[Rfam]
RNA: RT-2 RNA
RNA sequence: CACGGCCAGACCUAGUAAGCGCGAGCUGAACGCAGAGCCAUAGAGGAAGGAAGGCGCGACGGUCGGCCGCAAAGGCCGUGAAUCGGUACCCCGCGAGCGGCGGCGGACGCUGCUUGCAUGGCGGCGCGUUGUGCGUUCCGCGCCGUUUCAUGCCGCCGACUCACGCGGUUAGCAGAACGACACAUUGGAAACCGUGCGGGGUACACCAUGAAUUCAGAGGAAAG
Number, nucleotide and partner (000 for none) at each position: 001c000002a000003c000004g039005g038006c037007c000008a000009g000010a000011c000012c000013u000014a000015g000016u000017a000018a000019g026020c025021g000022c000023g000024a000025g020026c019027u000028g000029a000030a000031c000032g000033c000034a000035g000036a000037g006038c005039c004040a000041u000042a000043g000044a000045g000046g000047a000048a000049g000050g000051a000052a000053g000054g000055c000056g000057c000058g000059a000060c000061g000062g000063u000064c078065g077066g076067c075068c000069g000070c000071a000072a000073a000074g000075g067076c066077c065078g064079u000080g000081a000082a000083u000084c000085g000086g204087u203088a202089c201090c200091c199092c198093g197094c000095g000096a161097g000098c158099g157100g156101c155102g154103g153104c152105g000106g000107a000108c000109g117110c116111u000112g000113c000114u000115u000116g110117c109118a000119u000120g147121g146122c145123g144124g143125c142126g141127c140128g139129u000130u000131g000132u000133g000134c000135g000136u000137u000138c000139c128140g127141c126142g125143c124144c123145g122146u121147u120148u000149c000150a000151u000152g104153c103154c102155g101156c100157c099158g098159a000160c000161u096162c000163a000164c000165g195166c194167g193168g192169u191170u000171a000172g183173c000174a000175g000176a000177a000178c000179g000180a000181c000182a000183c172184a000185u000186u000187g000188g000189a000190a000191a169192c168193c167194g166195u165196g000197c093198g092199g091200g090201g089202u088203a087204c086205a000206c000207c000208a000209u000210g000211a000212a000213u000214u000215c000216a000217g000218a000219g000220g000221a000222a000223a000224g000